[Rfam]
RNA sequence: ACUGUUGCUAACAUGCAACUCUGUUCUAUGUAAACGGGAAUUGCACUUUAGCAAUGGUGAUGG
Numbered sequence: 001a002c003u004g005u006u007g008c009u010a011a012c013a014u015g016c017a018a019c020u021c022u023g024u025u026c027u028a029u030g031u032a033a034a035c036g037g038g039a040a041u042u043g044c045a046c047u048u049u050a051g052c053a054a055u056g057g058u059g060a061u062g063g
Stems, first nucleotide, its partner, number of pairs: 001058011014045005020039003

Shown here is a 63-nucleotide RNA sequence from Monodelphis domestica, a member of the family "mir-367 microRNA precursor family". Rfam's curators put it in the seed alignment. A reference for the family is Mineno et al. (2006), "The expression profile of microRNAs in mouse embryos", Nucleic Acids Res. Lineage of the source: Eukaryota > Deuterostomia > Gnathostomata > Didelphimorphia > Monodelphis. Pairs were carried over by alignment from the consensus structure, which was predicted with RNAalifold.